[Rfam]
RNA: MIR162_2 microRNA precursor family
RNA sequence: GUCUGGGCGCAGUGGUUUAUCGAUCCCUUCCUUGCCUUGUGCUGAUCCGGGAGCGGUGGUUCAAGUGUUUCUUGAGUCAGCAGCUUUGCAGACAACGCGGGAAUCGGUCGAUAAACCUCUGCAUCCAGCU
Numbered sequence: 001g002u003c004u005g006g007g008c009g010c011a012g013u014g015g016u017u018u019a020u021c022g023a024u025c026c027c028u029u030c031c032u033u034g035c036c037u038u039g040u041g042c043u044g045a046u047c048c049g050g051g052a053g054c055g056g057u058g059g060u061u062c063a064a065g066u067g068u069u070u071c072u073u074g075a076g077u078c079a080g081c082a083g084c085u086u087u088g089c090a091g092a093c094a095a096c097g098c099g100g101g102a103a104u105c106g107g108u109c110g111a112u113a114a115a116c117c118u119c120u121g122c123a124u125c126c127a128g129c130u
Base pairs, nucleotide, nucleotide: 003128004127005126006125007124009122010121011120012119014117015116016115017114018113019112020111021110022109023108024107025106028103029102030101031100032099034098035097037095038094039093